[Rfam]
RNA sequence: AUACUUACCUGGACGGGGUCAAUGGGUGAUCAAGAAGGCCCAUGGCCUAAGUUGGUGACCUCCAUUGCACUUGGGAGGGGUGCCCGCCUAAGGUCAGCCCAAGUUGGUUGAGCCUACGUCAUAAUUUGUAGUAGAAGGGGCCUGCAUUCGCGCGGCCCCUGC
Numbered sequence: 001a002u003a004c005u006u007a008c009c010u011g012g013a014c015g016g017g018g019u020c021a022a023u024g025g026g027u028g029a030u031c032a033a034g035a036a037g038g039c040c041c042a043u044g045g046c047c048u049a050a051g052u053u054g055g056u057g058a059c060c061u062c063c064a065u066u067g068c069a070c071u072u073g074g075g076a077g078g079g080g081u082g083c084c085c086g087c088c089u090a091a092g093g094u095c096a097g098c099c100c101a102a103g104u105u106g107g108u109u110g111a112g113c114c115u116a117c118g119u120c121a122u123a124a125u126u127u128g129u130a131g132u133a134g135a136a137g138g139g140g141c142c143u144g145c146a147u148u149c150g151c152g153c154g155g156c157c158c159c160u161g162c
Stems, first nucleotide, its partner, number of pairs: 012120004016048006023042005049089001051087001053086001055083003059079003062075002091115003094111003098107002136160004143154003
The record is a 162-nucleotide sequence from Coffea arabica, which matches "U1 spliceosomal RNA" in Rfam. The literature on the family includes a 1997 paper in Nucleic Acids Res by Zwieb, "The uRNA database". Rfam links the family to the GO terms U1 snRNP, pre-mRNA 5'-splice site binding and mRNA 5'-splice site recognition.